[Rfam]
RNA sequence: UACCCCGUUUGAUGUUCUCAUUGAACGUGUGUGGUAGAACGGUUCGCCAAAACCGUCUGGCUAGUAAGUACCCAGUCAAUUUACCACAUAUUUUUUCGAGAGAACUGAUAACGGGGAUUUAU
Numbered sequence: 001u002a003c004c005c006c007g008u009u010u011g012a013u014g015u016u017c018u019c020a021u022u023g024a025a026c027g028u029g030u031g032u033g034g035u036a037g038a039a040c041g042g043u044u045c046g047c048c049a050a051a052a053c054c055g056u057c058u059g060g061c062u063a064g065u066a067a068g069u070a071c072c073c074a075g076u077c078a079a080u081u082u083a084c085c086a087c088a089u090a091u092u093u094u095u096u097c098g099a100g101a102g103a104a105c106u107g108a109u110a111a112c113g114g115g116g117a118u119u120u121a122u
Base pairs, nucleotide, nucleotide: 004115005114006113007112008111009110014105015104016103017102018101019100021098023095024094025093027089028088031087032086034084035083036082037081040055041054042053043052044051058078059077060076061075062074
RNA: MtlS RNA
Organism: Salinivibrio sp. KP-1